[Rfam]
A member of the RNA family "Lysine riboswitch aptamer" from Vibrio sp. 10N.286.49.B3, 178 nucleotides long. Lineage of the source: Bacteria > Pseudomonadota > Gammaproteobacteria > Vibrionaceae > Vibrio. The family has 47 seed sequences and 3,224 matches in Rfam 15.1. Its family is annotated with lysine biosynthetic process in the Gene Ontology. The match comes from Rfam's covariance-model search (93 bits).
RNA sequence: UCUAGCAGAAGAGGAGCAUUGCCCAGGCAGGUGUUUUGUAGAGCCACAACUCUAAUACAAAAUACUGAUGGGGAGUAAUGCCGAGAUGAGUCAAAGUUGUUGGUUUUGAUUUGUCGGUUGAUUGGGCUGAAUCCCUUCAACUGUCACCAGCCCUAUCUGGUGAUGAGCUUCUGAGGUU
Dot-bracket structure: .....((((((....(((((((.(.....((((((((.....................))))))))......).)))))))...((((((((((((.......))))))))))))((((((..(((......))).)))))).(((((((......)))))))....)))))).....